[Rfam]
RNA sequence: CGGCGGGACACCCCUCCCCAACGAGGGGCAAAUAUCUGGAAGGGUAUGAUAU
Number, nucleotide and partner (000 for none) at each position: 001c000002g000003g000004c000005g000006g000007g000008a000009c000010a000011c028012c027013c026014c025015u024016c023017c000018c000019c000020a000021a000022c000023g016024a015025g014026g013027g012028g011029c000030a000031a000032a047033u046034a045035u044036c043037u042038g000039g000040a000041a000042g037043g036044g035045u034046a033047u032048g000049a000050u000051a000052u000